A member of the RNA family "Actinobacteria sRNA Ms_IGR-5" from Mycobacterium noviomagense, 179 nucleotides long. A search with the family's covariance model found it, with a score of 151 bits. The base pairs follow the family's consensus structure.
RNA sequence: ACACAGGAAAGGAGGUGGUCCGAGAAUUGAUUGGCUUAUGGACAUGUGAGGUGGCUGCGCGCUAAGCAGCGCCAGGCAGGAAAGAGCUGGCAUCGCUUGCUAGUGAAUUCCCCGCAGUCACCCGGCCCCCGAGCCCCCGGUCUGUCCAACCAGGAACUUAGGCUCGGGGGCUGUCCAUU
Numbered sequence: 001a002c003a004c005a006g007g008a009a010a011g012g013a014g015g016u017g018g019u020c021c022g023a024g025a026a027u028u029g030a031u032u033g034g035c036u037u038a039u040g041g042a043c044a045u046g047u048g049a050g051g052u053g054g055c056u057g058c059g060c061g062c063u064a065a066g067c068a069g070c071g072c073c074a075g076g077c078a079g080g081a082a083a084g085a086g087c088u089g090g091c092a093u094c095g096c097u098u099g100c101u102a103g104u105g106a107a108u109u110c111c112c113c114g115c116a117g118u119c120a121c122c123c124g125g126c127c128c129c130c131g132a133g134c135c136c137c138c139g140g141u142c143u144g145u146c147c148a149a150c151c152a153g154g155a156a157c158u159u160a161g162g163c164u165c166g167g168g169g170g171c172u173g174u175c176c177a178u179u
Stems, first nucleotide, its partner, number of pairs: 015058005060105005066100002069096003123173013136154002139151003